[Rfam]
RNA sequence: UUGGUUUAAAUCAUUGUGAAUCUACACGUUGGAAAUUGAACAUACACAAAGGGGUGGAACAUACAUUGAUUUCAUCUAA
Numbered sequence: 001u002u003g004g005u006u007u008a009a010a011u012c013a014u015u016g017u018g019a020a021u022c023u024a025c026a027c028g029u030u031g032g033a034a035a036u037u038g039a040a041c042a043u044a045c046a047c048a049a050a051g052g053g054g055u056g057g058a059a060c061a062u063a064c065a066u067u068g069a070u071u072u073c074a075u076c077u078a079a
Base pairs, nucleotide, nucleotide: 001079002078003077004076006074008072009071010070011069012068013067015065016064017063018062022057023056024055025053027051029049030048031047
A member of the RNA family "MIR5269 microRNA precursor family" from Medicago truncatula, 79 nucleotides long. NCBI's taxonomy places the organism under Eukaryota, Tracheophyta, Fabaceae, Papilionoideae, Medicago. The family has 2 seed sequences and 389 matches in Rfam 15.1. A search with the family's covariance model found it, with a score of 75 bits.